RNA sequence: CCCUUCUUUCCAAAGCAUCCUGCUAAAAUCACGAAUCCUAAGUCUUUCUGGCCUAGGGUUUGUGGUCAUGCUAGCAGUGGUUCUACCAAAGAAGGAAGAGCAAAAGCACAACAGUCGGAAAUGAGUCCGGGAGGGACCUCUUUCUUAAUGUCCAGUGUCCUCGAUCUCAAGAUUUUGUGUCAUAUUU
Numbered sequence: 001c002c003c004u005u006c007u008u009u010c011c012a013a014a015g016c017a018u019c020c021u022g023c024u025a026a027a028a029u030c031a032c033g034a035a036u037c038c039u040a041a042g043u044c045u046u047u048c049u050g051g052c053c054u055a056g057g058g059u060u061u062g063u064g065g066u067c068a069u070g071c072u073a074g075c076a077g078u079g080g081u082u083c084u085a086c087c088a089a090a091g092a093a094g095g096a097a098g099a100g101c102a103a104a105a106g107c108a109c110a111a112c113a114g115u116c117g118g119a120a121a122u123g124a125g126u127c128c129g130g131g132a133g134g135g136a137c138c139u140c141u142u143u144c145u146u147a148a149u150g151u152c153c154a155g156u157g158u159c160c161u162c163g164a165u166c167u168c169a170a171g172a173u174u175u176u177g178u179g180u181c182a183u184a185u186u187u
Stems, first nucleotide, its partner, number of pairs: 019080001021076005028069002031066001034060002037057004042052003106180006113173001129158001131156001134153003
Small nucleolar RNA SNORA81: a 187-nucleotide RNA sequence from Chanos chanos. Gene Ontology terms of the family: RNA processing and nucleolus. Pairs were carried over by alignment from the consensus structure, which was predicted with WAR. A reference for the family is Gu et al. (2005), "A novel experimental approach for systematic identification of box H/ACA snoRNAs from eukaryotes", Nucleic Acids Res.